[Rfam]
RNA sequence: AAUCAUCAGCGGGUAAAUCCUGCAAUGUGCCUCUGGCGCUUCCUUCCAUCGGUUGGCUAUGAACCAGAGGAAAUGGGCAUUGCAGGGACCGCAUUAUU
Numbered sequence: 001a002a003u004c005a006u007c008a009g010c011g012g013g014u015a016a017a018u019c020c021u022g023c024a025a026u027g028u029g030c031c032u033c034u035g036g037c038g039c040u041u042c043c044u045u046c047c048a049u050c051g052g053u054u055g056g057c058u059a060u061g062a063a064c065c066a067g068a069g070g071a072a073a074u075g076g077g078c079a080u081u082g083c084a085g086g087g088a089c090c091g092c093a094u095u096a097u098u
Base pairs, nucleotide, nucleotide: 001098002097003096005094006093010091011090024081025080026079027078028077030075031069032068033067034066035065036064042056043055046052047051
Shown here is a 98-nucleotide sequence from Candidatus Brocadia sapporoensis, a member of the family "DUF3800-V RNA".
NCBI's taxonomy places the organism under Bacteria, Pseudomonadati, Planctomycetota, Candidatus Brocadiia, Candidatus Brocadia.
A search with the family's covariance model found it, with a score of 43 bits.
The family's RNA type in Rfam is small RNA.
The family's consensus secondary structure is taken from published work.